[Rfam]
RNA sequence: GUUGCAGAGACAUUUUGGCAUUCUGUCCACCUCCAUGAUUCCUGCAUAUGAUAAUGAAGGUCGAAUUCUGAGUGUUUGGAGGUGGCCGGUAUACCAAACUGUCUCUGUAAA
Numbered sequence: 001g002u003u004g005c006a007g008a009g010a011c012a013u014u015u016u017g018g019c020a021u022u023c024u025g026u027c028c029a030c031c032u033c034c035a036u037g038a039u040u041c042c043u044g045c046a047u048a049u050g051a052u053a054a055u056g057a058a059g060g061u062c063g064a065a066u067u068c069u070g071a072g073u074g075u076u077u078g079g080a081g082g083u084g085g086c087c088g089g090u091a092u093a094c095c096a097a098a099c100u101g102u103c104u105c106u107g108u109a110a111a
Stems, first nucleotide, its partner, number of pairs: 011101001015097004020092001024088002027085008
RNA: MIR394 microRNA precursor family
Organism: Tripterygium wilfordii